[Rfam]
Notes
A member of the RNA family "MIR2118 microRNA precursor family" from Panicum miliaceum, 130 nucleotides long. The family's consensus secondary structure was predicted with RNAalifold. It scores 128 bits against the family's covariance model. NCBI's taxonomy places the organism under Eukaryota, Viridiplantae, Embryophyta, commelinids, Panicum sect. Panicum. The literature on the family includes a 2009 paper in Nucleic Acids Res by Xue et al., "Characterization and expression profiles of miRNAs in rice seeds".
RNA sequence: GUCAGGAAGAGGAAGAAUUGAGUGUCUAAGAGCAGUGGGCAUGGGAACAUGGAGGAAAGCAUUCGUUUGCGUUUUCCUGAUGCCUCCCAUGCCUAUUGUUCUUAGUUGCUCCUUCCCUUUCCUUUUGGCU
Dot-bracket structure: ........((((..(((..(((...(((((((((.(((((((((((.(((.(.(((((((..........)))))))).)))..))))))))))).)))))))))...))).)))..)))).........
Numbered sequence: 001g002u003c004a005g006g007a008a009g010a011g012g013a014a015g016a017a018u019u020g021a022g023u024g025u026c027u028a029a030g031a032g033c034a035g036u037g038g039g040c041a042u043g044g045g046a047a048c049a050u051g052g053a054g055g056a057a058a059g060c061a062u063u064c065g066u067u068u069g070c071g072u073u074u075u076c077c078u079g080a081u082g083c084c085u086c087c088c089a090u091g092c093c094u095a096u097u098g099u100u101c102u103u104a105g106u107u108g109c110u111c112c113u114u115c116c117c118u119u120u121c122c123u124u125u126u127g128g129c130u
Stems, first nucleotide, its partner, number of pairs: 009121004015115003020111003026105009036095011048082003052078001054077007